[Rfam]
RNA sequence: GCGACGGAAUCGGGAGAAGCCGGCCCUCGCGGUCGGUGCCGAAGGAGCAACCGCCCCGGGAAACUCUCAGGCAAAAGGACCGUUCCGGCCAU
Numbered sequence: 001g002c003g004a005c006g007g008a009a010u011c012g013g014g015a016g017a018a019g020c021c022g023g024c025c026c027u028c029g030c031g032g033u034c035g036g037u038g039c040c041g042a043a044g045g046a047g048c049a050a051c052c053g054c055c056c057c058g059g060g061a062a063a064c065u066c067u068c069a070g071g072c073a074a075a076a077g078g079a080c081c082g083u084u085c086c087g088g089c090c091a092u
Stems, first nucleotide, its partner, number of pairs: 005087005011082003020036004038072003041068002045066003051059002